[Rfam]
Nucleotides: 104
Stems, first nucleotide, its partner, number of pairs: 001104008013042001016041003022032003026076004043068004048064002051060003072096001077093005
Number, partner (000 for none) and nucleotide at each position: 001104c002103u003102c004101u005100u006099a007098u008097c009000a010000a011000g012000a013042g014000a015000a016041g017040g018039u019000g020000g021000a022032g023031g024030g025000a026076c027075u028074g029073g030024c031023c032022c033000g034000a035000u036000g037000a038000a039018a040017c041016c042013c043068g044067g045066c046065a047000a048064c049063c050000g051060g052059a053058c054000a055000c056000g057000c058053g059052u060051c061000g062000c063049g064048g065046u066045g067044c068043u069000a070000a071000u072096u073029c074028c075027a076026g077093c078092a079091g080090g081089g082000a083000g084000u085000g086000a087000a088000a089081c090080c091079c092078u093077g094000a095000u096072a097008g098007a099006u100005a101004a102003g103002a104001g